[Rfam]
RNA sequence: GCACUUGUGGUUCGAGAACCUCCCACAUAAAAAAACUAAGGAAAU
Numbered sequence: 001g002c003a004c005u006u007g008u009g010g011u012u013c014g015a016g017a018a019c020c021u022c023c024c025a026c027a028u029a030a031a032a033a034a035a036c037u038a039a040g041g042a043a044a045u
Stems, first nucleotide, its partner, number of pairs: 006027005016037001
Dot-bracket structure: .....(((((.....[......))))).........]........
The family of this 45-nucleotide RNA sequence from Neisseria arctica is "PreQ1 (pre queuosine) riboswitch aptamer". The base pairs follow the family's consensus structure. Taxonomically the source falls in Neisseria (Bacteria, Pseudomonadati, Neisseriales, Neisseriaceae). About the family: This family is a bacterial riboswitch that binds to the metabolite preQ1, an intermediate in the biosynthesis of the modified nucleoside queuosine from GTP. One example of this riboswitch is located in the leader of the Bacillus subtilis ykvJKLM (queCDEF) operon which encodes four genes necessary for queuosine production.